A member of the RNA family "Small nucleolar RNA SNORD74" from Anas platyrhynchos, 78 nucleotides long. Lineage of the source: Eukaryota > Deuterostomia > Vertebrata > Galloanserae > Anas platyrhynchos. The family has 22 seed sequences and 929 matches in Rfam 15.1. For this family Rfam cites "Purified box C/D snoRNPs are able to reproduce site-specific 2'-O-methylation of target RNA in vitro" (Galardi et al., Mol Cell Biol, 2002).
RNA sequence: GUGCCUGCGCAUGAUGAGAACCGUGUUGGUAGGGACAUCUGAGGGGCUGAUGAGUGCCAACACUGCUGAGCUGGGCGC
Numbered sequence: 001g002u003g004c005c006u007g008c009g010c011a012u013g014a015u016g017a018g019a020a021c022c023g024u025g026u027u028g029g030u031a032g033g034g035a036c037a038u039c040u041g042a043g044g045g046g047c048u049g050a051u052g053a054g055u056g057c058c059a060a061c062a063c064u065g066c067u068g069a070g071c072u073g074g075g076c077g078c
Base pairs, nucleotide, nucleotide: 001078002077003076004075005074